[Rfam]
RNA: Nucleoid-associated noncoding RNA 4 (CssrE)
Organism: Shigella sonnei
Nucleotides: 078
Base pairs, nucleotide, nucleotide: 003030004029005028006027007026008025011022012021013020014019045077046076047075048074049073050072051071052070054068055067056066057065058064
Number, partner (000 for none) and nucleotide at each position: 001000g002000a003030c004029c005028g006027g007026a008025u009000a010000a011022g012021g013020c014019g015000u016000u017000c018000a019014c020013g021012c022011c023000g024000c025008a026007u027006c028005c029004g030003g031000c032000a033000g034000u035000c036000g037000u038000g039000c040000g041000c042000c043000a044000u045077g046076c047075c048074u049073g050072a051071u052070g053000c054068g055067a056066c057065g058064c059000u060000u061000u062000g063000c064058g065057c066056g067055u068054c069000u070052u071051a072050u073049c074048a075047g076046g077045c078000c